Description:
Selenocysteine transfer RNA: a 91-nucleotide RNA from Chromobacterium sp. LK11.
RNA sequence: GGAAGAGACGCGUCCCCGGUGGGGCGGCUGGUCUUCAAAAUCAGAUGGGGCCGCCAGCGGUCCCGGGCAGGUUCGACUCCUGUUCUCUUCC
Numbered sequence: 001g002g003a004a005g006a007g008a009c010g011c012g013u014c015c016c017c018g019g020u021g022g023g024g025c026g027g028c029u030g031g032u033c034u035u036c037a038a039a040a041u042c043a044g045a046u047g048g049g050g051c052c053g054c055c056a057g058c059g060g061u062c063c064c065g066g067g068c069a070g071g072u073u074c075g076a077c078u079c080c081u082g083u084u085c086u087c088u089u090c091c
Stems, first nucleotide, its partner, number of pairs: 001091008011026006028044005047064005068082004
The match comes from Rfam's covariance-model search (74 bits).
Lineage of the source: Bacteria > Pseudomonadati > Neisseriales > Chromobacteriaceae > Chromobacterium.